A member of the RNA family "small nucleolar RNA snoR143" from Gossypium davidsonii, 165 nucleotides long.
The literature on the family includes a 2009 paper in Nucleic Acids Res by Chen and Wu, "Mining small RNA sequencing data: a new approach to identify small nucleolar RNAs in Arabidopsis".

[Rfam]
RNA sequence: CUUCAACAACAGUGCAGAAAUUAAAGGUUUAAUUUUUUUUUAUAUUUCUUUUUUGAAAAGAAAAGAAAGAAGAAAAAUUAAGCAGCGGCCAGACAACCGUAGGGAUGGUAUCCACAGAUGAAGGGUUUUUAAUCCCUUUUUGUCUACUGAUUCCAUCUCACAUUU
Numbered sequence: 001c002u003u004c005a006a007c008a009a010c011a012g013u014g015c016a017g018a019a020a021u022u023a024a025a026g027g028u029u030u031a032a033u034u035u036u037u038u039u040u041u042a043u044a045u046u047u048c049u050u051u052u053u054u055g056a057a058a059a060g061a062a063a064a065g066a067a068a069g070a071a072g073a074a075a076a077a078u079u080a081a082g083c084a085g086c087g088g089c090c091a092g093a094c095a096a097c098c099g100u101a102g103g104g105a106u107g108g109u110a111u112c113c114a115c116a117g118a119u120g121a122a123g124g125g126u127u128u129u130u131a132a133u134c135c136c137u138u139u140u141u142g143u144c145u146a147c148u149g150a151u152u153c154c155a156u157c158u159c160a161c162a163u164u165u
Base pairs, nucleotide, nucleotide: 002057003056004055005054006053009049011046012045013044014043016041017040018039019038020037023034024033102159103158104157105156106155107154108153110152121141122140123139124138125136
Overview: Gene Ontology terms of the family: RNA processing and nucleolus.